Annotation: Shown here is a 195-nucleotide RNA sequence from Ewingella americana, a member of the family "Lysine riboswitch aptamer". The base pairs follow the family's consensus structure, which is taken from published work. The organism belongs to Ewingella americana, within Bacteria. The match comes from Rfam's covariance-model search (88 bits).

RNA sequence: UGAGCCAGAAGAGGCGCGUCGCCCAGGAAGUGUAUCGGAGGAGCCGAAAUCCGAAGAGGAUACAUCAGGGGGUGCGACGCCGAGGUCUAAAGCUUGCGGCAAGCUGCGGAUCGACCACAGGGGCUGAAUCCUCUGGGUUGUCACCGAGAUAUACCCGUAACAAGGGUAUUGGCAAGGUGGGGCGCUUCUGGGUGU
Number, nucleotide and partner (000 for none) at each position: 001u000002g000003a000004g000005c000006c190007a189008g188009a187010a186011g185012a000013g000014g000015c000016g080017c079018g078019u077020c076021g075022c074023c000024c072025a000026g000027g000028a000029a000030g065031u064032g063033u062034a061035u060036c059037g000038g000039a000040g000041g000042a000043g000044c000045c000046g000047a000048a000049a000050u000051c000052c000053g000054a000055a000056g000057a000058g000059g036060a035061u034062a033063c032064a031065u030066c000067a000068g000069g000070g000071g000072g024073u000074g022075c021076g020077a019078c018079g017080c016081c000082g000083a000084g112085g111086u110087c109088u108089a000090a000091a105092g104093c103094u102095u101096g000097c000098g000099g000100c000101a095102a094103g093104c092105u091106g000107c000108g088109g087110a086111u085112c084113g139114a138115c137116c136117a000118c135119a134120g133121g132122g131123g130124c000125u000126g000127a000128a000129u000130c123131c122132u121133c120134u119135g118136g116137g115138u114139u113140g000141u180142c179143a178144c177145c176146g000147a000148g000149a000150u000151a000152u000153a000154c000155c000156c000157g000158u000159a000160a000161c000162a000163a000164g000165g000166g000167u000168a000169u000170u000171g000172g000173c000174a000175a000176g145177g144178u143179g142180g141181g000182g000183c000184g000185c011186u010187u009188c008189u007190g006191g000192g000193u000194g000195u000